[Rfam]
RNA: c-di-GMP-II-GAG riboswitch aptamer
RNA sequence: AUGGUGACCGGGGGCCCUGACGCGCGAUCCGCGUCCCGGCCGCCGGGACCGCGCCGAGUCAUCGGCGGGACCGACCCGUGACUGC
Numbered sequence: 001a002u003g004g005u006g007a008c009c010g011g012g013g014g015c016c017c018u019g020a021c022g023c024g025c026g027a028u029c030c031g032c033g034u035c036c037c038g039g040c041c042g043c044c045g046g047g048a049c050c051g052c053g054c055c056g057a058g059u060c061a062u063c064g065g066c067g068g069g070a071c072c073g074a075c076c077c078g079u080g081a082c083u084g085c
Base pairs, nucleotide, nucleotide: 002084003083004082005081007079008078010076011075013060014059015058022054023053024052025051026050028048029047038072039071040068041067042066043065044064
Dot-bracket structure: .((((.((.((.(((......(((((.((........[[[[[[[..)).)))))...)))...]]]]]..]]..)).)).)))).